[Rfam]
RNA sequence: CAAUUAUAUUAGCAGACAUGAAAUCGCUAACCUUGCGAUGAGUGCAAAAGCUUAGAUGGA
Numbered sequence: 001c002a003a004u005u006a007u008a009u010u011a012g013c014a015g016a017c018a019u020g021a022a023a024u025c026g027c028u029a030a031c032c033u034u035g036c037g038a039u040g041a042g043u044g045c046a047a048a049a050g051c052u053u054a055g056a057u058g059g060a
Stems, first nucleotide, its partner, number of pairs: 023039005029033001
Record summary: Rfam assigns this 60-nucleotide sequence from Neisseria animaloris to the family "porB RNA". The family's RNA type in Rfam is small RNA. Taxonomically the source falls in Neisseria (Bacteria, Pseudomonadati, Pseudomonadota, Betaproteobacteria).